RNA: Makes More Granules Regulator RNA (mmgR)
RNA sequence: GUUGUCUGCUUUUCUUGGACGUUUCCUCCCUAAACUCGGCGGCGCCUCGCGGUGCCGCCCUUUUUUUGCCUGCG
Numbered sequence: 001g002u003u004g005u006c007u008g009c010u011u012u013u014c015u016u017g018g019a020c021g022u023u024u025c026c027u028c029c030c031u032a033a034a035c036u037c038g039g040c041g042g043c044g045c046c047u048c049g050c051g052g053u054g055c056c057g058c059c060c061u062u063u064u065u066u067u068g069c070c071u072g073c074g
Base pairs, nucleotide, nucleotide: 008020010018011017038059039058040057041056042055043054044053045052046051